Background:
A member of the RNA family "Small nucleolar RNA Z279/snoR105/snoR108" from Brassica cretica, 95 nucleotides long. Gene Ontology terms of the family: nucleolus and RNA processing. About the family: This family includes the plant snoRNAs known as Z279, snoR105 and snoR108. The organism belongs to Brassica, within Eukaryota. A reference for the family is Marker et al. (2002), "Experimental RNomics: identification of 140 candidates for small non-messenger RNAs in the plant Arabidopsis thaliana", Curr Biol. The family has 20 seed sequences and 906 matches in Rfam 15.1.
RNA sequence: GGGAAGUGAUGAGUGGUUAAUAACUCGCUAAUAAUGCGAGAAGAGUGUUUCGCUACGACUAUUGAGCGCUCUCCAUAGCCAUACCAUCUGAUUCC
Numbered sequence: 001g002g003g004a005a006g007u008g009a010u011g012a013g014u015g016g017u018u019a020a021u022a023a024c025u026c027g028c029u030a031a032u033a034a035u036g037c038g039a040g041a042a043g044a045g046u047g048u049u050u051c052g053c054u055a056c057g058a059c060u061a062u063u064g065a066g067c068g069c070u071c072u073c074c075a076u077a078g079c080c081a082u083a084c085c086a087u088c089u090g091a092u093u094c095c
Stems, first nucleotide, its partner, number of pairs: 001095004014086004024040005042072008052062001